This 71-nucleotide sequence from Faecalibacterium sp. CAG:1138 belongs to the Rfam family "Gut-1 RNA". The match comes from Rfam's covariance-model search (56 bits). The base pairs follow the family's consensus structure, which is taken from published work.
RNA sequence: CAGUCAAAUCCGUCUUUGACGGGUGAAAUCCACCUUUGGUGGAUGAAAUCGCUGUCGCGAUGAAAUCCUGC
Dot-bracket structure: .......(((((((...)))))))...((((((.....))))))...(((((....)))))..........